[Rfam]
RNA sequence: GCCGAGCUUGGUAACUCGAGCUUGUAACCUGAGUGGGGGCUUUAAGGUGAUUGAACGUUGGUUUGGCUUUGCAGAGUCGGAUCUCGGGUGGUUUAACUCUGGCUUGCCCGUUCCAAGUUUAGAGUUGAGCCAAGGGGCUUGAGUGAAAACUCUGAGUCUCGUGGUUCUUAGAGUGGAGGGAACUGCGUCAGGCUGGUUUCACAGAGCAGCGAAGACCUCUCUCUCUUGACAGUGGAAGAAUAACAAGCUCGAUCCACUCCGAUCCAACAUGGCUCAGCGAGCAAACCAUGACUGGACCAUCAUCCUU
Dot-bracket structure: (((((((((((....))))))))....(((....))))))...(.((((((.(..((((((((((.(.((((.((((((((((..((.(((..(....(.((((((..(.(((((.(((.((((..((((((.(((((((((((....))).)))))))).))))))(....).(((((....(.(((....(((......)))....))).)..)))))..)))).)))..)))))).....)))))).)).)))))..))))).....))))).))))))))))..))).))..).)))))).).

Rfam assigns this 307-nucleotide RNA from Gossypium arboreum to the family "Plant signal recognition particle RNA". A reference for the family is Wild et al. (2002), "Towards the structure of the mammalian signal recognition particle", Curr Opin Struct Biol. It is annotated as a non-coding RNA gene.